[Rfam]
RNA: mir-4738 microRNA precursor family
Organism: Aotus nancymaae
RNA sequence: GGUCGCGUUUCUCUUUACCAGAGCGUUUUCAGUUUCAUAGGGAAGCCUUUCCAUGAAACUGAAGCUCCUGGAGGAGAAGAGGCC
Numbered sequence: 001g002g003u004c005g006c007g008u009u010u011c012u013c014u015u016u017a018c019c020a021g022a023g024c025g026u027u028u029u030c031a032g033u034u035u036c037a038u039a040g041g042g043a044a045g046c047c048u049u050u051c052c053a054u055g056a057a058a059c060u061g062a063a064g065c066u067c068c069u070g071g072a073g074g075a076g077a078a079g080a081g082g083c084c
Base pairs, nucleotide, nucleotide: 001084002083003082004081006079009078010077011076012075013074014073015072018071019070020069021068023067025065026064027063028062030061031060032059033058034057035056036055037054038053040051041050042049043048